[Rfam]
RNA sequence: AGGAGUUGCCGAGAAAUAAGACCCUCGAUUGUGAAAAAUAUUGUUAUUAUAAAUAAUAGUAUUGAGCGCAAGAGUCUAGCUAGUAAGUAGAAUUCUCAUAAGGAAUCAUUUCCACUAUGAAUCUAGUCACUAAAUAAACACAAUUAGCUACUGUGUGUAAUAGUGAGUGUUGAUAACACAAAAUAAUAGUAUAGUUUUGGAAGAUUAUACUAUUCUUUUAAACAAUCUAUU
Numbered sequence: 001a002g003g004a005g006u007u008g009c010c011g012a013g014a015a016a017u018a019a020g021a022c023c024c025u026c027g028a029u030u031g032u033g034a035a036a037a038a039u040a041u042u043g044u045u046a047u048u049a050u051a052a053a054u055a056a057u058a059g060u061a062u063u064g065a066g067c068g069c070a071a072g073a074g075u076c077u078a079g080c081u082a083g084u085a086a087g088u089a090g091a092a093u094u095c096u097c098a099u100a101a102g103g104a105a106u107c108a109u110u111u112c113c114a115c116u117a118u119g120a121a122u123c124u125a126g127u128c129a130c131u132a133a134a135u136a137a138a139c140a141c142a143a144u145u146a147g148c149u150a151c152u153g154u155g156u157g158u159a160a161u162a163g164u165g166a167g168u169g170u171u172g173a174u175a176a177c178a179c180a181a182a183a184u185a186a187u188a189g190u191a192u193a194g195u196u197u198u199g200g201a202a203g204a205u206u207a208u209a210c211u212a213u214u215c216u217u218u219u220a221a222a223c224a225a226u227c228u229a230u231u
Stems, first nucleotide, its partner, number of pairs: 010027004080126004087118004092106004109203006127166004133161001135159001138156005167179004182217002185214001187212009